mir-205 microRNA precursor family: a 74-nucleotide sequence from Chloroceryle aenea. For this family Rfam cites "Vertebrate microRNA genes" (Lim et al., Science, 2003). Rfam 15.1 lists 1,154 matches to the family in 646 species. Rfam links the family to the GO terms RISC complex and miRNA-mediated post-transcriptional gene silencing. Lineage of the source: Eukaryota > Sarcopterygii > Sauropsida > Theropoda > Chloroceryle. The match comes from Rfam's covariance-model search (61 bits).
RNA sequence: UCCUGGUGCCCUUCAUUCCACCAGAAUCUGUUGAUCCAGGAACCAAAUUUCAGUGAAAUGAAGCCCAUCAGAGA
Numbered sequence: 001u002c003c004u005g006g007u008g009c010c011c012u013u014c015a016u017u018c019c020a021c022c023a024g025a026a027u028c029u030g031u032u033g034a035u036c037c038a039g040g041a042a043c044c045a046a047a048u049u050u051c052a053g054u055g056a057a058a059u060g061a062a063g064c065c066c067a068u069c070a071g072a073g074a
Stems, first nucleotide, its partner, number of pairs: 011063006019055003024050003029045002